[Rfam]
RNA sequence: CAGUCAGGCGGGGUAACCUUACCUGUUCCUCCUUGUGGAGGGCAUGUGGCCAUCGUGGUUGCAGGAUACUUGGCUGAUGUCUCUGUGUAAUGAGGGCUUGCAAUAUCCUAAUUGAUCUUCCUGAA
Numbered sequence: 001c002a003g004u005c006a007g008g009c010g011g012g013g014u015a016a017c018c019u020u021a022c023c024u025g026u027u028c029c030u031c032c033u034u035g036u037g038g039a040g041g042g043c044a045u046g047u048g049g050c051c052a053u054c055g056u057g058g059u060u061g062c063a064g065g066a067u068a069c070u071u072g073g074c075u076g077a078u079g080u081c082u083c084u085g086u087g088u089a090a091u092g093a094g095g096g097c098u099u100g101c102a103a104u105a106u107c108c109u110a111a112u113u114g115a116u117c118u119u120c121c122u123g124a125a
Stems, first nucleotide, its partner, number of pairs: 024044002027042006065083002068080002071076001088114004093109003

U8 small nucleolar RNA: a 125-nucleotide RNA from Cebus imitator. Its family is annotated with nucleolus and RNA processing in the Gene Ontology. It scores 57 bits against the family's covariance model.